[Rfam]
RNA sequence: AUGAUGUGAAAGACAUGGGUAGUGAGAUGUUUGUGUGUGCAGUUGUUAUCUAAUCAUUAUCCAUCUUACUACUGUGUUUUUCCACAUUAU
Numbered sequence: 001a002u003g004a005u006g007u008g009a010a011a012g013a014c015a016u017g018g019g020u021a022g023u024g025a026g027a028u029g030u031u032u033g034u035g036u037g038u039g040c041a042g043u044u045g046u047u048a049u050c051u052a053a054u055c056a057u058u059a060u061c062c063a064u065c066u067u068a069c070u071a072c073u074g075u076g077u078u079u080u081u082c083c084a085c086a087u088u089a090u
Stems, first nucleotide, its partner, number of pairs: 008082008018073002021070009
Dot-bracket structure: .......((((((((..((.(((((((((................................))))))))).)).))))))))........